[Rfam]
RNA sequence: CGUGCAGUGCGAGGGUUUGCACGAGAUCACUCCUUGCCUUUUACCAGAUGUGACCGCGAGUCCCGCACAAAACUGCACUUAUAUAAUCUUUGGCACGGACUCAAUGGAGUCAGU
Dot-bracket structure: ..((((.((((.(((((((.......((((..((...........))..))))...)))))))))))......))))..................(.((((......)))).).
RNA: U5 spliceosomal RNA
Organism: Pyrenochaeta sp. DS3sAY3a